[Rfam]
Nucleotides: 062
Base pairs, nucleotide, nucleotide: 008028009027010026011025012024013023032055033054034053035052036051037050038049039048
Number, partner (000 for none) and nucleotide at each position: 001000u002000g003000u004000c005000u006000c007000c008028u009027c010026c011025a012024c013023c014000u015000c016000c017000u018000u019000c020000a021000u022000u023013g024012g025011u026010g027009g028008a029000u030000u031000g032055g033054g034053c035052c036051c037050g038049a039048g040000g041000u042000u043000c044000a045000c046000g047000c048039c049038u050037c051036g052035g053034g054033c055032c056000u057000u058000u059000u060000u061000u062000c